RNA: Small nucleolar RNA SNORD87
RNA sequence: GCUGACAUAAUGAUGAUUGAUUUUUUGCCGUUUACCCAACUGAAUUUCCUGUUGAGUAUUCAUGUAUCUGAGAUGUCAGC
Number, nucleotide and partner (000 for none) at each position: 001g080002c079003u078004g077005a076006c075007a074008u000009a000010a000011u000012g000013a000014u000015g000016a000017u000018u000019g000020a000021u000022u000023u000024u000025u000026u000027g000028c000029c000030g000031u000032u000033u000034a000035c000036c000037c000038a000039a000040c000041u000042g000043a000044a000045u000046u000047u000048c000049c000050u000051g000052u000053u000054g000055a000056g000057u000058a000059u000060u000061c000062a000063u000064g000065u000066a000067u000068c000069u000070g000071a000072g000073a000074u007075g006076u005077c004078a003079g002080c001